A member of the RNA family "M-box riboswitch aptamer (ykoK leader)" from Lachnoclostridium sp. An196, 162 nucleotides long.
On this family, see Barrick et al., Proc Natl Acad Sci U S A 2004: "New RNA motifs suggest an expanded scope for riboswitches in bacterial genetic control".
Rfam's curators write: M-box riboswitch, also know as ykoK leader is described as a metaloregulatory RNA that sense divalent metals and function as a genetic control element of genes related to divalent metal transport in bacteria.
Taxonomically the source falls in Lachnoclostridium (Bacteria, Clostridia, Lachnospirales, Lachnospiraceae).
[Rfam]
RNA sequence: UGAUAGAUCCGGUAGGUAAGGCUACCGCAGGGAUAUGGGUUGCUGCCGCAAAAUGAUGGAGACAUCAUGCGUUGGUUUGAACAGGCGAUAUCGAAACGAAGGUAUCAUCUAAUGCAAUUUCACCGCCCUGCGAUGCUAAAGCUUGGACGGUUGCACCAGAGA
Number, nucleotide and partner (000 for none) at each position: 001u000002g000003a000004u000005a000006g157007a000008u155009c000010c153011g148012g000013u100014a000015g143016g142017u141018a000019a000020g137021g136022c135023u000024a000025c000026c132027g131028c130029a129030g128031g127032g126033a000034u000035a000036u000037g000038g000039g118040u117041u116042g115043c114044u000045g076046c075047c074048g073049c000050a000051a000052a000053a000054u067055g066056a000057u064058g063059g000060a000061g000062a000063c058064a057065u000066c055067a054068u000069g000070c000071g000072u000073u048074g047075g046076u045077u000078u000079g000080a000081a000082c000083a000084g109085g108086c000087g106088a000089u000090a103091u102092c101093g000094a000095a000096a000097c000098g000099a000100a013101g092102g091103u090104a000105u000106c087107a000108u085109c084110u000111a000112a000113u000114g043115c042116a041117a040118u039119u000120u000121c000122a000123c000124c000125g000126c032127c031128c030129u029130g028131c027132g026133a000134u000135g022136c021137u020138a000139a000140a000141g017142c016143u015144u000145g000146g000147a000148c011149g000150g000151u000152u000153g010154c000155a008156c000157c006158a000159g000160a000161g000162a000